Overview:
This 152-nucleotide sequence from Clostridium thermopalmarium belongs to the Rfam family "c-di-AMP riboswitch aptamer (ydaO/yuaA leader)". The organism belongs to Clostridium thermopalmarium, within Bacteria. Rfam's curators write: This family represents a conserved RNA structure found upstream of the ydaO and yuaA genes in Bacillus subtilis and related genes in other bacteria.
[Rfam]
RNA sequence: AUAUUGUAAGCGCUGAAUUUCUGUGUAGACAGAAUACGGGGGAACCAUUUUGGGGUGAAUCCAGAUUUUCAUGCAUUGAGAAAUCUGGUAGGGCUAAUUUCUUUUCGGUCCGAAUCCGUCAGCUAAUCUCGGAAGCCUUGAAGCGGAGGGGA
Numbered sequence: 001a002u003a004u005u006g007u008a009a010g011c012g013c014u015g016a017a018u019u020u021c022u023g024u025g026u027a028g029a030c031a032g033a034a035u036a037c038g039g040g041g042g043a044a045c046c047a048u049u050u051u052g053g054g055g056u057g058a059a060u061c062c063a064g065a066u067u068u069u070c071a072u073g074c075a076u077u078g079a080g081a082a083a084u085c086u087g088g089u090a091g092g093g094c095u096a097a098u099u100u101c102u103u104u105u106c107g108g109u110c111c112g113a114a115u116c117c118g119u120c121a122g123c124u125a126a127u128c129u130c131g132g133a134a135g136c137c138u139u140g141a142a143g144c145g146g147a148g149g150g151g152a
Stems, first nucleotide, its partner, number of pairs: 012136003019034006037131005046052002053117003061088009091111004